The record is a 127-nucleotide sequence, which matches "LOOT RNA" in Rfam.

[Rfam]
RNA sequence: AGCCUAACCCUUUGGUCUGCGUAAGUAGGCGAGAGGCAUGGUUGAAAAUCGUGUUAACAGUACUGAUCCCGUCGUUCAGGUAUGUUAACACGUCACUUAAGGAAACUUUUGUGGGGCUUUACGGUCC
Numbered sequence: 001a002g003c004c005u006a007a008c009c010c011u012u013u014g015g016u017c018u019g020c021g022u023a024a025g026u027a028g029g030c031g032a033g034a035g036g037c038a039u040g041g042u043u044g045a046a047a048a049u050c051g052u053g054u055u056a057a058c059a060g061u062a063c064u065g066a067u068c069c070c071g072u073c074g075u076u077c078a079g080g081u082a083u084g085u086u087a088a089c090a091c092g093u094c095a096c097u098u099a100a101g102g103a104a105a106c107u108u109u110u111g112u113g114g115g116g117c118u119u120u121a122c123g124g125u126c127c
Base pairs, nucleotide, nucleotide: 001043002042003041004040009036010035011034012033013032015030016029017028018027019026020025050092051091052090053089054088055087056086057085058084059083063079064078065077066076068074094113095112096111099108100107101106114127115126116125117124118123